Rfam assigns this 112-nucleotide sequence from Alkaliphilus sp. B6464 to the family "Glycine riboswitch aptamer". Its family is annotated with glycine biosynthetic process in the Gene Ontology. It scores 62 bits against the family's covariance model.
[Rfam]
RNA sequence: AAGAAAAAUGCGGGAGAGAUUUAACAUUUUAAAUGUUAAACGCCGAAGGAAGAAGCUAAAAGGUUCGCCAUUUUUUAGUGAAUAUCUCAGGCAAAAGGACCGUAUUUGGACG
Numbered sequence: 001a002a003g004a005a006a007a008a009u010g011c012g013g014g015a016g017a018g019a020u021u022u023a024a025c026a027u028u029u030u031a032a033a034u035g036u037u038a039a040a041c042g043c044c045g046a047a048g049g050a051a052g053a054a055g056c057u058a059a060a061a062g063g064u065u066c067g068c069c070a071u072u073u074u075u076u077a078g079u080g081a082a083u084a085u086c087u088c089a090g091g092c093a094a095a096a097g098g099a100c101c102g103u104a105u106u107u108g109g110a111c112g
Stems, first nucleotide, its partner, number of pairs: 006107008020040007042092003045088002049086002055079010